Rfam assigns this 208-nucleotide sequence from an uncultured cyanobacterium to the family "permuted transfer-messenger RNA". On this family, see Williams and Bartel, RNA 1996: "Phylogenetic analysis of tmRNA secondary structure". It is annotated as a non-coding RNA gene. About the family: Bacterial tmRNA, also known as 10Sa RNA or SsrA, is named for its dual tRNA and mRNA-like properties. Its role is to liberate the mRNA from a stalled ribosome. To accomplish this part of the tmRNA is used as a reading frame that ends in a translation stop signal. The broken mRNA is replaced in the ribosome by the tmRNA and translation of the tmRNA leads to addition of a proteolysis tag to the incomplete protein enabling recognition by a protease. Recently a number of permuted tmRNA genes have been found encoded in two parts. tmRNAs have been identified in eubacteria and some chloroplasts but are absent from archaeal and eukaryote nuclear genomes. The sequence is in the family's curated seed alignment.
[Rfam]
RNA sequence: GGUGGCUCACACCGGUGUUUCGGACAGCGGUUCGAUUCCGCUCAGCUCCAUUCCCCCGCCGCCGGCCCCAUGGCCCGGCAGUUCCGGGGCUGCAAUGGUUUCGACGGGGCAUCAGGAGGGUGACUGAAGCCUGCUCGGCAUGAGCAAAACCGUAACAGCGAACAACAUCGUUCGUUUCUCCCGUCAGACUGCCCCUGUGGCCGCCUGA
Numbered sequence: 001g002g003u004g005g006c007u008c009a010c011a012c013c014g015g016u017g018u019u020u021c022g023g024a025c026a027g028c029g030g031u032u033c034g035a036u037u038c039c040g041c042u043c044a045g046c047u048c049c050a051u052u053c054c055c056c057c058g059c060c061g062c063c064g065g066c067c068c069c070a071u072g073g074c075c076c077g078g079c080a081g082u083u084c085c086g087g088g089g090c091u092g093c094a095a096u097g098g099u100u101u102c103g104a105c106g107g108g109g110c111a112u113c114a115g116g117a118g119g120g121u122g123a124c125u126g127a128a129g130c131c132u133g134c135u136c137g138g139c140a141u142g143a144g145c146a147a148a149a150c151c152g153u154a155a156c157a158g159c160g161a162a163c164a165a166c167a168u169c170g171u172u173c174g175u176u177u178c179u180c181c182c183g184u185c186a187g188a189c190u191g192c193c194c195c196u197g198u199g200g201c202c203g204c205c206u207g208a
Base pairs, nucleotide, nucleotide: 001125002124003123005121016111017110018109020107021106022105026042027041028040029039030038043092044091045090046089047088048087049086